[Rfam]
RNA sequence: UGGGUGGUCAACAAGCGCGGGUCUGGCGGAGCGCGGUGGCGCGCGGAGACCGCGAGGCGACCGGGAGCGGCUGGGUCCCCGGCGGCGCGCCCCUCGGCCGGGCCGGGAGCCGCGCCAGUCGGUGCUCCCGGCCGAGCGCGGUCCGCCUCCCUCUCAGCGAUCGUCCGCCCGGGGUGCGGCCCGCGGGCAUGCCGGAUCCACCAGGGGCGCCGCCGCCGGCGCUCGCAGGUCGCGGGUGAAGAAAGUGCGGCCUCGCUCGGCCCGGAGCGAAGACGUGGCCCGGAGCCAAGAGGUGACCCGAAGUGAAGAAGUGGCCCAAAGUGAAGAGGUGACCGAGGGCCAGGAGGUGGCCCCGAGCGAGGAAAUG
Dot-bracket structure: ...................((((((((..........((.((((((...)))).......(((((.((......)).)))))......)).))...)))))))).......................................(((((((................(((((............)))))................((((((((....)))))))).............................(((((......))))).........................................................................)))))))..................
Shown here is a 367-nucleotide RNA from Canis lupus, a member of the family "Bag-1 internal ribosome entry site (IRES)". This family represents the bag-1 internal ribosome entry site (IRES). When expressed the BAG-1 protein is known to enhance the anti-apoptotic properties of Bcl-2. Although bag-1 translation usually occurs via a cap-dependent mechanism it has been found to contain a IRES in its 5' UTR. Translation via the IRES has been found to be common following heat shock when cap-dependent scanning is compromised. It is one of the family's seed sequences. The family's consensus secondary structure was predicted with PFOLD. Lineage of the source: Eukaryota > Metazoa > Vertebrata > Caniformia > Canis lupus.